The family of this 86-nucleotide RNA sequence from Gossypium trilobum is "Small nucleolar RNA R11/Z151". NCBI's taxonomy places the organism under Eukaryota, Gunneridae, Pentapetalae, Malvaceae, Gossypium. Rfam classes the family as a C/D-box small nucleolar RNA. A search with the family's covariance model found it, with a score of 79 bits.

RNA sequence: AGGCUAAUGAUGAUAAUUUAAAAUUGUCUUAGCGGAUUUCAGUGAGAUUGCCAUCAAUGAUCUGAUUGUUACACACACCGAAGCCU
Numbered sequence: 001a002g003g004c005u006a007a008u009g010a011u012g013a014u015a016a017u018u019u020a021a022a023a024u025u026g027u028c029u030u031a032g033c034g035g036a037u038u039u040c041a042g043u044g045a046g047a048u049u050g051c052c053a054u055c056a057a058u059g060a061u062c063u064g065a066u067u068g069u070u071a072c073a074c075a076c077a078c079c080g081a082a083g084c085c086u
Stems, first nucleotide, its partner, number of pairs: 001086005